This 84-nucleotide RNA from Peribacillus asahii belongs to the Rfam family "c-di-GMP-I riboswitch aptamer".

RNA sequence: UUAGAAGAAAGGCAAAAUUGCUGAAAAGUAAUGACGCAAAGCUAUAGGGACUUCUACCUGCGGUAAAGUCAGCCAGUUAUCAUC
Numbered sequence: 001u002u003a004g005a006a007g008a009a010a011g012g013c014a015a016a017a018u019u020g021c022u023g024a025a026a027a028g029u030a031a032u033g034a035c036g037c038a039a040a041g042c043u044a045u046a047g048g049g050a051c052u053u054c055u056a057c058c059u060g061c062g063g064u065a066a067a068g069u070c071a072g073c074c075a076g077u078u079a080u081c082a083u084c
Stems, first nucleotide, its partner, number of pairs: 012037002017032006040078004047074002049070003056064003
The family's consensus secondary structure is taken from published work.
Clan: c-di-GMP_I riboswitch clan.
The source organism's lineage runs through Bacteria, Bacilli, Caryophanales, Bacillaceae and Peribacillus.